[Rfam]
Selenocysteine insertion sequence 1: a 63-nucleotide RNA from Stegodyphus mimosarum. Rfam classes the family as a cis-regulatory element. The match comes from Rfam's covariance-model search (37 bits).
RNA sequence: CUGUUUUUAAUGAAAGGCUAUACGUAAACUACUAUGGCUGUAUAGUUUCGAUGUUUCAAACAC
Number, nucleotide and partner (000 for none) at each position: 001c000002u062003g061004u060005u059006u000007u000008u000009a000010a000011u000012g000013a000014a000015a048016g047017g046018c045019u044020a043021u042022a041023c040024g039025u000026a000027a000028a000029c037030u036031a035032c000033u000034a000035u031036g030037g029038c000039u024040g023041u022042a021043u020044a019045g018046u017047u016048u015049c000050g000051a000052u000053g000054u000055u000056u000057c000058a000059a005060a004061c003062a002063c000